[Rfam]
RNA sequence: AGAAUAUUGAGAAGAUCUGUCCUUAGUACGAGAGGACCGGGAUGGACAAACCUCUGAUGAAUCAGUUGUCACGCCAGUGGCACAGCUGGGUAGUCACGUUUGGAAGGGAUAAUCGCUGAAAGCAUCUAAGUGAGAAGCCCACUUCAAGAUGAGUAUUCUACCUUUAUGGUUAAGUCACCUUCGAGACUAGGAGGUUGAUAGGCUGGAGGUGUAAGUAUAGUGAUAUAUUUAGCUGACCAGUACUAAUAUGACGAAG
Numbered sequence: 001a002g003a004a005u006a007u008u009g010a011g012a013a014g015a016u017c018u019g020u021c022c023u024u025a026g027u028a029c030g031a032g033a034g035g036a037c038c039g040g041g042a043u044g045g046a047c048a049a050a051c052c053u054c055u056g057a058u059g060a061a062u063c064a065g066u067u068g069u070c071a072c073g074c075c076a077g078u079g080g081c082a083c084a085g086c087u088g089g090g091u092a093g094u095c096a097c098g099u100u101u102g103g104a105a106g107g108g109a110u111a112a113u114c115g116c117u118g119a120a121a122g123c124a125u126c127u128a129a130g131u132g133a134g135a136a137g138c139c140c141a142c143u144u145c146a147a148g149a150u151g152a153g154u155a156u157u158c159u160a161c162c163u164u165u166a167u168g169g170u171u172a173a174g175u176c177a178c179c180u181u182c183g184a185g186a187c188u189a190g191g192a193g194g195u196u197g198a199u200a201g202g203c204u205g206g207a208g209g210u211g212u213a214a215g216u217a218u219a220g221u222g223a224u225a226u227a228u229u230u231a232g233c234u235g236a237c238c239a240g241u242a243c244u245a246a247u248a249u250g251a252c253g254a255a256g
Stems, first nucleotide, its partner, number of pairs: 001159008011145004017045007047102005055096003062089005067082006106140003113133005162168001171254001174252004178194005199245003202241005208234002215228005
This 256-nucleotide part of an RNA from Sebaldella termitidis belongs to the Rfam family "Bacterial large subunit ribosomal RNA".